Shown here is a 93-nucleotide RNA from Ammoniphilus sp. CFH 90114, a member of the family "Selenocysteine transfer RNA". Gene Ontology term of the family: triplet codon-amino acid adaptor activity. It scores 63 bits against the family's covariance model. Taxonomically the source falls in Ammoniphilus (Bacteria, Bacillota, Bacilli, Caryophanales). A reference for the family is Mizutani and Goto (2000), "Eukaryotic selenocysteine tRNA has the 9/4 secondary structure", FEBS Lett.

[Rfam]
RNA sequence: GGGAGUUGAUGGGGUCCUGGUGGCCUUCCCGGUCUUCAAAACCGAGUGUGACGUCCGUGAGGCGUCAGGUGGGUUCGAUUCCCACCUUCUCCC
Numbered sequence: 001g002g003g004a005g006u007u008g009a010u011g012g013g014g015u016c017c018u019g020g021u022g023g024c025c026u027u028c029c030c031g032g033u034c035u036u037c038a039a040a041a042c043c044g045a046g047u048g049u050g051a052c053g054u055c056c057g058u059g060a061g062g063c064g065u066c067a068g069g070u071g072g073g074u075u076c077g078a079u080u081c082c083c084a085c086c087u088u089c090u091c092c093c
Stems, first nucleotide, its partner, number of pairs: 001093005008086001012027003016023002029046001030044004049067005070084004